[Rfam]
RNA sequence: UUAAUUAGUAUAGCCUGUAUUAGUGGCAUCAUCGGUUCUUUACAGGCUAUGCUAAUCUAUGC
Numbered sequence: 001u002u003a004a005u006u007a008g009u010a011u012a013g014c015c016u017g018u019a020u021u022a023g024u025g026g027c028a029u030c031a032u033c034g035g036u037u038c039u040u041u042a043c044a045g046g047c048u049a050u051g052c053u054a055a056u057c058u059a060u061g062c
Stems, first nucleotide, its partner, number of pairs: 004056015024034003
The record is a 62-nucleotide RNA from Synaphobranchus kaupii, which matches "mir-2187 microRNA precursor family" in Rfam. The base pairs follow the family's consensus structure, which was predicted with RNAalifold. The match comes from Rfam's covariance-model search (73 bits).